Notes:
The family of this 82-nucleotide RNA sequence from Candidatus Kinetoplastidibacterium crithidiae is "tRNA". The family's consensus secondary structure is taken from published work. Rfam classes the family as a transfer RNA. Rfam's curators write: Transfer RNA (tRNA) molecules are approximately 80 nucleotides in length. Their secondary structure includes four short double-helical elements and three loops (D, anti-codon, and T loops). Its family is annotated with triplet codon-amino acid adaptor activity in the Gene Ontology.
RNA sequence: GCCCAGGUGGCGAAAUUGGUAGACGCGCAUGGUUCAGGUCCAUGUACUUACAAGUAUGGAGGUUCAAAUCCUCUUCUGGGCA
Numbered sequence: 001g002c003c004c005a006g007g008u009g010g011c012g013a014a015a016u017u018g019g020u021a022g023a024c025g026c027g028c029a030u031g032g033u034u035c036a037g038g039u040c041c042a043u044g045u046a047c048u049u050a051c052a053a054g055u056a057u058g059g060a061g062g063u064u065c066a067a068a069u070c071c072u073c074u075u076c077u078g079g080g081c082a
Base pairs, nucleotide, nucleotide: 001081002080003079004078005077006076007075010026011025012024028044029043030042031041032040058074059073060072061071062070